[Rfam]
RNA sequence: UGAAAGUGUUGUCAAGCGACUAUGGGGACUGCGUGCUUGCACGCAAGGAACCAUAGACAUUUGACAACCAAGCCGGUAUGAGUAAGCAGGGCGACAGCCCGGAUUACGAAUGCUGGUGGCAGUUGUGGGAGUGCCAGCGGCACGUAACAACUGACUUACUUUCA
Numbered sequence: 001u002g003a004a005a006g007u008g009u010u011g012u013c014a015a016g017c018g019a020c021u022a023u024g025g026g027g028a029c030u031g032c033g034u035g036c037u038u039g040c041a042c043g044c045a046a047g048g049a050a051c052c053a054u055a056g057a058c059a060u061u062u063g064a065c066a067a068c069c070a071a072g073c074c075g076g077u078a079u080g081a082g083u084a085a086g087c088a089g090g091g092c093g094a095c096a097g098c099c100c101g102g103a104u105u106a107c108g109a110a111u112g113c114u115g116g117u118g119g120c121a122g123u124u125g126u127g128g129g130a131g132u133g134c135c136a137g138c139g140g141c142a143c144g145u146a147a148c149a150a151c152u153g154a155c156u157u158a159c160u161u162u163c164a
Stems, first nucleotide, its partner, number of pairs: 001164007008068004015061002018058001020056006029047002031044005072117008082107004089100004120153007131143004